[Rfam]
RNA sequence: GAAACGCACCAGGGGUGCCGGUGUCCUGCUUUUAUCCUGGCAACUUUGCUGGAUAAUAAAGCAGGUCUUUGGCUGAGAAAGUCCCUUUGAACCUGAACAGGAUAAUACCUGCGUAGGGAGUGUGCAUUUCUUUUCUU
Numbered sequence: 001g002a003a004a005c006g007c008a009c010c011a012g013g014g015g016u017g018c019c020g021g022u023g024u025c026c027u028g029c030u031u032u033u034a035u036c037c038u039g040g041c042a043a044c045u046u047u048g049c050u051g052g053a054u055a056a057u058a059a060a061g062c063a064g065g066u067c068u069u070u071g072g073c074u075g076a077g078a079a080a081g082u083c084c085c086u087u088u089g090a091a092c093c094u095g096a097a098c099a100g101g102a103u104a105a106u107a108c109c110u111g112c113g114u115a116g117g118g119a120g121u122g123u124g125c126a127u128u129u130c131u132u133u134u135c136u137u
Stems, first nucleotide, its partner, number of pairs: 006125004011086004016080001017073005092117004098111004
TPP riboswitch aptamer (THI element): a 137-nucleotide RNA sequence. About the family: Vitamin B(1) in its active form thiamin pyrophosphate (TPP) is an essential coenzyme that is synthesised by coupling of pyrimidine and thiazole moieties in bacteria. A search with the family's covariance model found it, with a score of 68 bits.